The record is a 104-nucleotide RNA sequence from Leadbettera azotonutricia, which matches "Termite-flg RNA" in Rfam. A search with the family's covariance model found it, with a score of 44 bits. It is annotated as a cis-regulatory element.
RNA sequence: GUCCGUUUCGUACUGCAGAAGGAAGCUCCAAAAGCAGCGGCGCGAACCUGCUUCUGUCUUCCCCACCUGAGGUACGGCUAAGGCUAGGGACAGCCUUGGUAUUA
Numbered sequence: 001g002u003c004c005g006u007u008u009c010g011u012a013c014u015g016c017a018g019a020a021g022g023a024a025g026c027u028c029c030a031a032a033a034g035c036a037g038c039g040g041c042g043c044g045a046a047c048c049u050g051c052u053u054c055u056g057u058c059u060u061c062c063c064c065a066c067c068u069g070a071g072g073u074a075c076g077g078c079u080a081a082g083g084c085u086a087g088g089g090a091c092a093g094c095c096u097u098g099g100u101a102u103u104a
Stems, first nucleotide, its partner, number of pairs: 009076006016069001021062002029056002032053006077100008